[Rfam]
RNA: Small nucleolar RNA SNORD11B
RNA sequence: UGAUGGCAGUGAUGAUUCCUAGAAUGUUGCUCACCUGAUUUACAAACAUGAGGGUGCUCAGUCACUACCUCAUCUGAGCCAUCU
Number, nucleotide and partner (000 for none) at each position: 001u000002g083003a082004u081005g080006g079007c078008a000009g000010u000011g000012a000013u000014g000015a000016u000017u000018c000019c000020u000021a000022g000023a000024a000025u000026g000027u000028u000029g000030c000031u000032c000033a000034c000035c000036u000037g000038a000039u000040u000041u000042a000043c000044a000045a000046a000047c000048a000049u000050g000051a000052g000053g000054g000055u000056g000057c000058u000059c000060a000061g000062u000063c000064a000065c000066u000067a000068c000069c000070u000071c000072a000073u000074c000075u000076g000077a000078g007079c006080c005081a004082u003083c002084u000